Annotation
A member of the RNA family "Group II catalytic intron D1-D4-1", 92 nucleotides long. Rfam 15.1 lists 2,508 matches to the family in 1,144 species. Rfam links the family to the GO term Group II intron splicing. It is one of the family's seed sequences.
RNA sequence: UGGUUUCAUCAGCCAUAGUAACAACGAAUCAUAGGAAGUCAGCAGAUGUCAUAGUAGCGAAGAAGUCCGGGAAACCGGAUGGAGCAAAGGAC
Numbered sequence: 001u002g003g004u005u006u007c008a009u010c011a012g013c014c015a016u017a018g019u020a021a022c023a024a025c026g027a028a029u030c031a032u033a034g035g036a037a038g039u040c041a042g043c044a045g046a047u048g049u050c051a052u053a054g055u056a057g058c059g060a061a062g063a064a065g066u067c068c069g070g071g072a073a074a075c076c077g078g079a080u081g082g083a084g085c086a087a088a089g090g091a092c
Stems, first nucleotide, its partner, number of pairs: 001026002004023001006021001008019002011016001038047003048092003057085002066079003